[Rfam]
RNA sequence: CACACGCGGAAUCCCCUCAUGAGCCCAUGAGGAUACCCCGGUGGCCGGUUCAGCCGGUUCACUGUUCCGCGGAGGUUUAACCGGAGAAAAAAGAUGG
Dot-bracket structure: (.(.(((((((.................(......)......((((((.....)))))).....)))))))).).......................

This 97-nucleotide sequence from Microvirga flocculans belongs to the Rfam family "rpsB sRNA".
NCBI's taxonomy places the organism under Bacteria, Pseudomonadati, Hyphomicrobiales, Methylobacteriaceae, Microvirga.
The literature on the family includes a 2009 paper in BMC Genomics by Meyer et al., "Identification of candidate structured RNAs in the marine organism 'Candidatus Pelagibacter ubique'".
The family's consensus secondary structure is taken from published work.